[Rfam]
RNA sequence: CUUCUAGAAGGGAGCGAAGACCCCGUGGAGCUUUACUACAGCCUGUCGUUGUGAUGCGGUGAUGGAUGUACAGCGUAGAUGGGAGCCAUCGAAACCCUAGCGCUAGCUAGGGUGGAGGCACCAAUGGAACACCAUCCUUCUUUCGCCACGUCACUAACUAGAAAUAGAACACCGAUAGGUGGGUAGUUUGGGUGGGGCGCCACGCCCUCGAAAAGAUAUCAAGGGCGCCCAAAGGUCACCUCAAGGAGGUCAGAAAUCUCCUGUAGAAUGCAAGGGUAUAAGGUGGCUUUACACGGAUUGGCACAAUAACAAUCCGCGUUGCGAAAGCAAGGCCUAGCGAACCAAUCAACCUCUUUUGUGGGGGUGAUUGAUAACAGAAAAGUUACCCCGGGGAUAACUGAGUUGUCUUCAGCAAGAGCCCAUAUCGACCUGAAGGCUUGCUACUUCGAUGUCGUCUCUCCGCAUCCUGGCGGUGCAGCAGCUGCCAAGGGUGGGGUUGUUCGCCCAUUAAAGCGGAUCGUGAGAUGGGUUUAGACCGUCGUGAGACAGGUUUGUUGCUAUCUUCUAGAAGCGU
Numbered sequence: 001c002u003u004c005u006a007g008a009a010g011g012g013a014g015c016g017a018a019g020a021c022c023c024c025g026u027g028g029a030g031c032u033u034u035a036c037u038a039c040a041g042c043c044u045g046u047c048g049u050u051g052u053g054a055u056g057c058g059g060u061g062a063u064g065g066a067u068g069u070a071c072a073g074c075g076u077a078g079a080u081g082g083g084a085g086c087c088a089u090c091g092a093a094a095c096c097c098u099a100g101c102g103c104u105a106g107c108u109a110g111g112g113u114g115g116a117g118g119c120a121c122c123a124a125u126g127g128a129a130c131a132c133c134a135u136c137c138u139u140c141u142u143u144c145g146c147c148a149c150g151u152c153a154c155u156a157a158c159u160a161g162a163a164a165u166a167g168a169a170c171a172c173c174g175a176u177a178g179g180u181g182g183g184u185a186g187u188u189u190g191g192g193u194g195g196g197g198c199g200c201c202a203c204g205c206c207c208u209c210g211a212a213a214a215g216a217u218a219u220c221a222a223g224g225g226c227g228c229c230c231a232a233a234g235g236u237c238a239c240c241u242c243a244a245g246g247a248g249g250u251c252a253g254a255a256a257u258c259u260c261c262u263g264u265a266g267a268a269u270g271c272a273a274g275g276g277u278a279u280a281a282g283g284u285g286g287c288u289u290u291a292c293a294c295g296g297a298u299u300g301g302c303a304c305a306a307u308a309a310c311a312a313u314c315c316g317c318g319u320u321g322c323g324a325a326a327g328c329a330a331g332g333c334c335u336a337g338c339g340a341a342c343c344a345a346u347c348a349a350c351c352u353c354u355u356u357u358g359u360g361g362g363g364g365u366g367a368u369u370g371a372u373a374a375c376a377g378a379a380a381a382g383u384u385a386c387c388c389c390g391g392g393g394a395u396a397a398c399u400g401a402g403u404u405g406u407c408u409u410c411a412g413c414a415a416g417a418g419c420c421c422a423u424a425u426c427g428a429c430c431u432g433a434a435g436g437c438u439u440g441c442u443a444c445u446u447c448g449a450u451g452u453c454g455u456c457u458c459u460c461c462g463c464a465u466c467c468u469g470g471c472g473g474u475g476c477a478g479c480a481g482c483u484g485c486c487a488a489g490g491g492u493g494g495g496g497u498u499g500u501u502c503g504c505c506c507a508u509u510a511a512a513g514c515g516g517a518u519c520g521u522g523a524g525a526u527g528g529g530u531u532u533a534g535a536c537c538g539u540c541g542u543g544a545g546a547c548a549g550g551u552u553u554g555u556u557g558c559u560a561u562c563u564u565c566u567a568g569a570a571g572c573g574u
Base pairs, nucleotide, nucleotide: 001571002570003569004568005567006566007565008564010563011562012561014558015557022392023391024390025389027388028387029384030383031382032381033380035187036186037185038184042179043178044177045176046175047174048173051154052153053152054151055150056149058147059146060145061144062143064141065140066139068137078136079135080134081133082132085119086118087117097110098109099108100107101106158167159166160165190203191201192200193199204226205225206224207223208222229332230331235287236286237285238284239283240282241267242266244262245261246260247259248258249257268277269276292318294316295315296314297313298312299311300310320329322327343370344369345368346367347366349365350364351363352362353361401442402441403440405439406436407435408434409433410432411431412430416426417425453528454526455525456524457523458520459517460516461515462514463513466491467490470485471484472483473482474481494506495505496504497503534552535551536550537549538547539546540545
The family of this 574-nucleotide part of an RNA from Thermoplasmatales archaeon SCGC AB-539-N05 is "Archaeal large subunit ribosomal RNA".